[Rfam]
RNA sequence: GUGGUCAGGGAUCGCCCCCCGUCAGCGAGUUUCGCCCACGGGGGACAAUUGUA
Numbered sequence: 001g002u003g004g005u006c007a008g009g010g011a012u013c014g015c016c017c018c019c020c021g022u023c024a025g026c027g028a029g030u031u032u033c034g035c036c037c038a039c040g041g042g043g044g045a046c047a048a049u050u051g052u053a
Base pairs, nucleotide, nucleotide: 016044017043018042019041020040021039022038025035026034027033028032
Overview
The record is a 53-nucleotide RNA sequence from Primorskyibacter flagellatus, which matches "ffh sRNA" in Rfam. A search with the family's covariance model found it, with a score of 60 bits. Rfam classes the family as a small RNA. NCBI's taxonomy places the organism under Bacteria, Pseudomonadota, Alphaproteobacteria, Rhodobacterales, Primorskyibacter. On this family, see Meyer et al., BMC Genomics 2009: "Identification of candidate structured RNAs in the marine organism 'Candidatus Pelagibacter ubique'". Pairs were carried over by alignment from the consensus structure, which is taken from published work.